[Rfam]
RNA sequence: GCAGACUCACUCUGUACCCGGCUGUGGCCCCAGGCGGGUGCUUUUUUCGUCUGCUACAGAAACAUUCUGGGUGCUGUGACCACCUUGACCUCUGUCAAGGGUGAUGUAGUUGCCUGGGACACAGGA
Numbered sequence: 001g002c003a004g005a006c007u008c009a010c011u012c013u014g015u016a017c018c019c020g021g022c023u024g025u026g027g028c029c030c031c032a033g034g035c036g037g038g039u040g041c042u043u044u045u046u047u048c049g050u051c052u053g054c055u056a057c058a059g060a061a062a063c064a065u066u067c068u069g070g071g072u073g074c075u076g077u078g079a080c081c082a083c084c085u086u087g088a089c090c091u092c093u094g095u096c097a098a099g100g101g102u103g104a105u106g107u108a109g110u111u112g113c114c115u116g117g118g119a120c121a122c123a124g125g126a
Base pairs, nucleotide, nucleotide: 001054002053003052004051005050006049014041015040016039017038018037019036020035022033023032024031067117068116069115070114071113072112073110074109075108076107077106078105081103082102083101084100085099